[Rfam]
RNA sequence: GUGCAAUGACUGACUUGGAUAAGUUUCGGCUGAAACGUCACACUUGAUGCCAACUUUUAAGAAUUUGCUGAGCAC
Numbered sequence: 001g002u003g004c005a006a007u008g009a010c011u012g013a014c015u016u017g018g019a020u021a022a023g024u025u026u027c028g029g030c031u032g033a034a035a036c037g038u039c040a041c042a043c044u045u046g047a048u049g050c051c052a053a054c055u056u057u058u059a060a061g062a063a064u065u066u067g068c069u070g071a072g073c074a075c
Stems, first nucleotide, its partner, number of pairs: 001075004

Shown here is a 75-nucleotide sequence from Caenorhabditis briggsae, a member of the family "Caenorhabditis snoRNA ceN108". Pairs were carried over by alignment from the consensus structure. Rfam links the family to the GO terms nucleolus and RNA processing. The source organism's lineage runs through Eukaryota, Bilateria, Protostomia, Rhabditidae and Caenorhabditis. A reference for the family is Jia et al. (2007), "Systematic identification of non-coding RNA 2,2,7-trimethylguanosine cap structures in Caenorhabditis elegans", BMC Mol Biol.